This 81-nucleotide RNA from Arachis hypogaea belongs to the Rfam family "Small nucleolar RNA R160".
Rfam describes the family as follows. snoR160 is a C/D box small nucleolar RNA, which acts as a methylation guide for 25S ribosomal RNA in plants. snoR160 has been alternatively named snoZ270 in rice.
A reference for the family is Chen et al. (2003), "The high diversity of snoRNAs in plants: identification and comparative study of 120 snoRNA genes from Oryza sativa", Nucleic Acids Res.
The source organism's lineage runs through Eukaryota, Magnoliopsida, eudicotyledons, Pentapetalae and Arachis.
The match comes from Rfam's covariance-model search (65 bits).
RNA sequence: AGCAAAAUGAUGAAGUUUUAUGUCUGAAACUGAUGUGGAAUUCUUUGGUUUCAUAUAGGUCUUCAAAGUUCUCUGAUUGCU
Numbered sequence: 001a002g003c004a005a006a007a008u009g010a011u012g013a014a015g016u017u018u019u020a021u022g023u024c025u026g027a028a029a030c031u032g033a034u035g036u037g038g039a040a041u042u043c044u045u046u047g048g049u050u051u052c053a054u055a056u057a058g059g060u061c062u063u064c065a066a067a068g069u070u071c072u073c074u075g076a077u078u079g080c081u
Base pairs, nucleotide, nucleotide: 001081002080003079004078005077